Source information
Rfam assigns this 62-nucleotide sequence from Propithecus coquereli to the family "U7 small nuclear RNA". Rfam describes the family as follows. Animal histone pre-mRNAs are spliced by a different mechanism than nuclear pre-mRNAs and self-splicing introns. This processing involves the U7 snRNP, which contains only one RNA species: U7. The 5' end of U7 RNA is thought to base-pair to a conserved spacer element downstream of the cleavage site in histone pre-mRNA. This family contains a number of annotated U7 pseudogenes. The family's consensus secondary structure was predicted with PFOLD. The literature on the family includes a 1994 paper in Nucleic Acids Res by Spycher et al., "3' end processing of mouse histone pre-mRNA: evidence for additional base-pairing between U7 snRNA and pre-mRNA". The match comes from Rfam's covariance-model search (46 bits).
RNA sequence: UAGUGUUACAGCUGUUUUAGAAUUUUUCUAACAUGUUCUCUGGUUUUCACCAGAAAACCCUA
Numbered sequence: 001u002a003g004u005g006u007u008a009c010a011g012c013u014g015u016u017u018u019a020g021a022a023u024u025u026u027u028c029u030a031a032c033a034u035g036u037u038c039u040c041u042g043g044u045u046u047u048c049a050c051c052a053g054a055a056a057a058c059c060c061u062a
Base pairs, nucleotide, nucleotide: 035058036057037056039054040053041052042051043050044049